A member of the RNA family "U12 minor spliceosomal RNA" from Puma concolor, 151 nucleotides long. It scores 80 bits against the family's covariance model. Rfam classes the family as a spliceosomal small nuclear RNA. Lineage of the source: Eukaryota > Vertebrata > Sarcopterygii > Boreoeutheria > Puma.
RNA sequence: AUGACAUAAACCUAUGAGUAGGGAAAAUAAUAAUUCAAGGCGGUGCCCAAAUUCUCACUGCUAAUGUGAGAUUAAUUUUUGAGCGGAUAAUAGCUGCCCCCAAAGGUGACCUGCCUAUUUCGCAGGACGCCUGGGAGUCACGAUCUGCCCA
Numbered sequence: 001a002u003g004a005c006a007u008a009a010a011c012c013u014a015u016g017a018g019u020a021g022g023g024a025a026a027a028u029a030a031u032a033a034u035u036c037a038a039g040g041c042g043g044u045g046c047c048c049a050a051a052u053u054c055u056c057a058c059u060g061c062u063a064a065u066g067u068g069a070g071a072u073u074a075a076u077u078u079u080u081g082a083g084c085g086g087a088u089a090a091u092a093g094c095u096g097c098c099c100c101c102a103a104a105g106g107u108g109a110c111c112u113g114c115c116u117a118u119u120u121c122g123c124a125g126g127a128c129g130c131c132u133g134g135g136a137g138u139c140a141c142g143a144u145c146u147g148c149c150c151a
Stems, first nucleotide, its partner, number of pairs: 005022001007020002032053004039046001054070005085150002088147001093144001095142002100135002104132005110126005